[Rfam]
RNA sequence: CGACAUCGUCAGCCGAGUGCCUUGGACGCGUGGUCCGGGGCAACGGGGGAACCAAUCCCGACCACCGAUCCGGAAUCGUUUUCCGGGCCACCGGCAGUCUCAGGGGCAUGCGAUACCUGCGGUAUCGGGAGCACAUGGUGGCUCCAGCCCGACAGCUAACCCCGUAGGCAUCACCGUGAGGCGCG
Numbered sequence: 001c002g003a004c005a006u007c008g009u010c011a012g013c014c015g016a017g018u019g020c021c022u023u024g025g026a027c028g029c030g031u032g033g034u035c036c037g038g039g040g041c042a043a044c045g046g047g048g049g050a051a052c053c054a055a056u057c058c059c060g061a062c063c064a065c066c067g068a069u070c071c072g073g074a075a076u077c078g079u080u081u082u083c084c085g086g087g088c089c090a091c092c093g094g095c096a097g098u099c100u101c102a103g104g105g106g107c108a109u110g111c112g113a114u115a116c117c118u119g120c121g122g123u124a125u126c127g128g129g130a131g132c133a134c135a136u137g138g139u140g141g142c143u144c145c146a147g148c149c150c151g152a153c154a155g156c157u158a159a160c161c162c163c164g165u166a167g168g169c170a171u172c173a174c175c176g177u178g179a180g181g182c183g184c185g
Stems, first nucleotide, its partner, number of pairs: 012169003018042010043165006053103001104150003112126004129144004
The record is a 185-nucleotide RNA from Luteolibacter ambystomatis, which matches "c-di-AMP riboswitch aptamer (ydaO/yuaA leader)" in Rfam.
On this family, see Barrick et al., Proc Natl Acad Sci U S A 2004: "New RNA motifs suggest an expanded scope for riboswitches in bacterial genetic control".